[Rfam]
RNA: TPP riboswitch aptamer (THI element)
RNA sequence: UUAGCAACCAAGGGGAGCCAUUUGGCUGAGAUUUGAGGAAAGACUCAUCAACCCUUAUACCUGAUCCGGAUAAUGCCGGCGUAGGAAUGGUAAGACACUUAUCC
Numbered sequence: 001u002u003a004g005c006a007a008c009c010a011a012g013g014g015g016a017g018c019c020a021u022u023u024g025g026c027u028g029a030g031a032u033u034u035g036a037g038g039a040a041a042g043a044c045u046c047a048u049c050a051a052c053c054c055u056u057a058u059a060c061c062u063g064a065u066c067c068g069g070a071u072a073a074u075g076c077c078g079g080c081g082u083a084g085g086a087a088u089g090g091u092a093a094g095a096c097a098c099u100u101a102u103c104c
Stems, first nucleotide, its partner, number of pairs: 007091004011055004017026003034047004060085004066079004